[Rfam]
RNA: G-CSF factor stem-loop destabilising element (SLDE)
RNA sequence: CCAAGGGUACCCACCUUGAGGCCCUCGGAAGCAUCAGGAAGUCUCCCAAGUGGGAGACAAGACAACCCUGUUUAAUAUUUAAACAGCAGUGUUCCCC
Numbered sequence: 001c002c003a004a005g006g007g008u009a010c011c012c013a014c015c016u017u018g019a020g021g022c023c024c025u026c027g028g029a030a031g032c033a034u035c036a037g038g039a040a041g042u043c044u045c046c047c048a049a050g051u052g053g054g055a056g057a058c059a060a061g062a063c064a065a066c067c068c069u070g071u072u073u074a075a076u077a078u079u080u081a082a083a084c085a086g087c088a089g090u091g092u093u094c095c096c097c
Base pairs, nucleotide, nucleotide: 004025005024006023007022008021010020012018034062035061041058042057043056044055045054046053047052068086069085070084071083072082073081074080075079